[Rfam]
Nucleotides: 583
Stems, first nucleotide, its partner, number of pairs: 001476002003473003007470007015460002019424005024317001026315008034306002040055004064301007077124002079121005086103007105116001107114002127290002130288004136284002138279003141275001143273002148187006154163003166179004193267004198235006208224002212222003238258002241255005321376007333364003338357002343352003383414001388409007430452007479582001481579001484575002489569004494564003499559012515544006522538004528533001
Number, partner (000 for none) and nucleotide at each position: 001476u002475g003473a004472c005471g006000g007470g008469g009468g010467c011466c012465c013464g014000c015460a016459c017000a018000a019424g020423c021422g022421g023420u024317g025000g026315a027314g028313c029312a030311u031310g032309u033308g034306g035305u036000u037000u038000a039000a040055u041054u042053c043052g044000a045000u046000g047000c048000a049000a050000c051000g052043c053042g054041a055040a056000g057000a058000a059000c060000c061000u062000u063000a064301c065300c066299u067298a068297c069296c070295c071000u072000u073000g074000a075000c076000a077124u078123c079121g080120u081119g082118c083117g084000a085000a086103g087102c088101c089100g090099g091098a092097a093000g094000a095000g096000a097092u098091u099090c100089c101088g102087g103086u104000g105116u106000g107114c108113c109000u110000u111000c112000g113108g114107g115000a116105g117083c118082g119081c120080a121079c122000a123078g124077a125000c126000a127290g128289g129000u130288g131287c132286u133285g134000c135000a136284u137283g138279g139278c140277u141275g142000u143273c144272g145000u146000c147000a148187g149186c150185u151184c152183g153182u154163g155162u156161u157000g158000u159000g160000a161156a162155a163154u164000g165000u166179u167178g168177g169176g170000u171000u172000a173000a174000g175000u176169c177168c178167c179166g180000u181000a182153a183152c184151g185150a186149g187148c188000g189000c190000a191000a192000c193267c194266c195265u196264u197000g198235u199234c200233c201232c202231u203230a204000u205000u206000u207000g208224c209223c210000a211000g212222c213221g214220a215000u216000u217000c218000g219000g220214u221213c222212g223209g224208g225000a226000a227000c228000u229000c230203u231202a232201g233200g234199g235198a236000g237000a238258c239257u240000g241255c242254c243253g244252g245251u246000g247000a248000c249000a250000a251245a252244c253243c254242g255241g256000a257239g258238g259000a260000a261000g262000g263000u264196g265195g266194g267193g268000a269000c270000g271000a272144c273143g274000u275141c276000a277140a278139g279138u280000c281000a282000u283137c284136a285133u286132g287131g288130c289128c290127c291000u292000u293000a294000c295070g296069g297068g298067u299066a300065g301064g302000g303000c304000u305035a306034c307000a308033c309032a310031c311030g312029u313028g314027c315026u316000a317024c318000a319000a320000u321376g322375g323374c324373c325372g326371g327370u328000a329000c330000a331000a332000a333364g334363g335362g336000u337000u338357g339356c340000a341000a342000a343352g344351c345350c346000g347000c348000g349000a350345g351344g352343u353000g354000g355000c356339g357338c358000c359000a360000a361000u362335c363334c364333c365000g366000a367000a368000a369000a370327g371326c372325c373324g374323g375322u376321c377000u378000c379000a380000g381000u382000c383414c384000g385000g386000a387000u388409c389408g390407g391406a392405g393404u394403c395000u396000g397000c398000a399000a400000c401000u402000c403394g404393a405392c406391u407390c408389c409388g410000u411000g412000a413000a414383g415000u416000c417000g418000g419000a420023a421022u422021c423020g424019c425000u426000a427000g428000u429000a430452a431451u432450c433449g434448u435447g436446a437000a438000u439000c440000a441000g442000a443000a444000u445000g446436u447435c448434a449433c450432g451431g452430u453000g454000a455000a456000u457000a458000c459016g460015u461000u462000c463000c464013c465012g466011g467010g468009c469008c470007u471005u472004g473003u474000a475002c476001a477000c478000a479582c480000c481579g482000c483000c484575c485574g486000u487000c488000a489569c490568a491567c492566c493000a494564u495563g496562g497000g498000a499559g500558u501557g502556g503555a504554c505553u506552g507551c508550a509549c510548c511000a512000g513000a514000a515544g516543u517542g518541g519540u520539u521000a522538g523537c524536c525535u526000a527000a528533c529000u530000u531000c532000g533528g534000a535525g536524g537523g538522c539520g540519a541518u542517c543516a544515c545000c546000a547000c548510g549509g550508u551507g552506u553505g554504g555503u556502u557501c558500a559499u560000g561000a562496c563495u564494g565000g566492g567491g568490u569489g570000a571000a572000g573000u574485c575484g576000u577000a578000a579481c580000a581000a582479g583000g

This 583-nucleotide part of an RNA from Halomonas cerina belongs to the Rfam family "Bacterial small subunit ribosomal RNA". The source organism's lineage runs through Bacteria, Pseudomonadota, Oceanospirillales, Halomonadaceae and Halomonas.